The family of this 96-nucleotide sequence is "ZMP/ZTP riboswitch aptamer (pfl RNA motif)". It is one of the family's seed sequences.
RNA sequence: UAGGCGCCGUGCAACUGACGGAAAGCCCAUUUGGGCAGGCAGGCUAAACUGCCGGGGAACGCGGCGUAUAAAAAGCCGACCGUCUGGGCAGCCUCU
Dot-bracket structure: ...((((((((...(([[[[[.................((((......))))..))...)))))))).......(((..]]]]]..))).......